[Rfam]
Nucleotides: 104
Base pairs, nucleotide, nucleotide: 003102004101005100006099007098008091009090010089011087012086013085014084016082017081018080019078020077021076023073024072026071027070028069029068030067031066032062033061034060035059036058037057038056039055040054041053
Number, partner (000 for none) and nucleotide at each position: 001000u002000c003102c004101c005100g006099c007098u008091g009090g010089c011087c012086u013085g014084g015000c016082a017081g018080g019078u020077g021076a022000c023073g024072g025000u026071g027070c028069u029068g030067g031066a032062u033061g034060u035059g036058g037057c038056c039055u040054u041053u042000u043000u044000g045000c046000c047000u048000u049000u050000u051000c052000u053041a054040a055039a056038g057037g058036c059035c060034a061033c062032a063000u064000u065000u066031u067030c068029c069028a070027g071026c072024c073023c074000a075000u076021u077020c078019a079000a080018c081017c082016u083000u084014c085013c086012a087011g088000a089010g090009c091008c092000c093000u094000c095000u096000g097000a098007a099006g100005u101004g102003g103000c104000c